[Rfam]
RNA sequence: AUUCUCUCAGCUCUGCUCAGUUACACUUGGUGAAGUAGUGUAAUUGUCGUCAUUAGAGAGAGAGAGAAAAUGAGUUCAGUAUGCACGGCAGAGGGACCGUGUGAUAUGGUCUCCCUGUUCCUUUUCAGACUCUACAUGU
Dot-bracket structure: .(((((((..((((....((((((((...........))))))))...........)))).))))))).......((.(.(.(......((..(((((.........)))))..))...).)..)..))..........
Numbered sequence: 001a002u003u004c005u006c007u008c009a010g011c012u013c014u015g016c017u018c019a020g021u022u023a024c025a026c027u028u029g030g031u032g033a034a035g036u037a038g039u040g041u042a043a044u045u046g047u048c049g050u051c052a053u054u055a056g057a058g059a060g061a062g063a064g065a066g067a068a069a070a071u072g073a074g075u076u077c078a079g080u081a082u083g084c085a086c087g088g089c090a091g092a093g094g095g096a097c098c099g100u101g102u103g104a105u106a107u108g109g110u111c112u113c114c115c116u117g118u119u120c121c122u123u124u125u126c127a128g129a130c131u132c133u134a135c136a137u138g139u
Stems, first nucleotide, its partner, number of pairs: 002068007011060004019045008076129002079125001081122001083120001090116002094112005
Rfam assigns this 139-nucleotide RNA from Mauremys mutica to the family "Small nucleolar RNA SNORA64/SNORA10 family". Its family is annotated with nucleolus and RNA processing in the Gene Ontology. Rfam 15.1 lists 703 matches to the family in 311 species. By type it is an H/ACA-box small nucleolar RNA. This family belongs to the H/ACA class of small nucleolar RNAs (snoRNAs) which act as guides in the the modification of uridines to pseudouridines. This family includes the human snoRNAs U64 and ACA10 and mouse MBI-29. The family's consensus secondary structure is taken from published work.